Shown here is a 60-nucleotide RNA sequence from Tupaia belangeri, a member of the family "Ma3 gene ribosomal frameshift signal". NCBI's taxonomy places the organism under Eukaryota, Metazoa, Dipnotetrapodomorpha, Eutheria, Tupaia. A reference for the family is Wills et al. (2006), "A functional -1 ribosomal frameshift signal in the human paraneoplastic Ma3 gene", J Biol Chem. The family's RNA type in Rfam is frameshift element.
[Rfam]
RNA sequence: GGGAAACGAGAUAGGGGCUGGGGCCAUGAGCCACCCCAAGCCCUGGGAAGCAUAGGCUCA
Numbered sequence: 001g002g003g004a005a006a007c008g009a010g011a012u013a014g015g016g017g018c019u020g021g022g023g024c025c026a027u028g029a030g031c032c033a034c035c036c037c038a039a040g041c042c043c044u045g046g047g048a049a050g051c052a053u054a055g056g057c058u059c060a
Base pairs, nucleotide, nucleotide: 014044015043016042017041018040019039021037022036023035028059029058030057031056032055
Dot-bracket structure: .............((((((.(((....[[[[[..))).))))))..........]]]]].